[Rfam]
RNA: Glycine riboswitch aptamer
RNA sequence: AUGAAGGCAAUGGGAGACAUCAAUUUAUGAUGGCCGAAGAAGAAAUGCGGUAUCUGCCGGGAUACCUGCAGAAACUUUCAGGCAAAAGUAUCGUUGUCUGAUG
Dot-bracket structure: .....((((((((.....((((.....)))).(((((..(((...(((((...............)))))....))))).))).......)))))))).....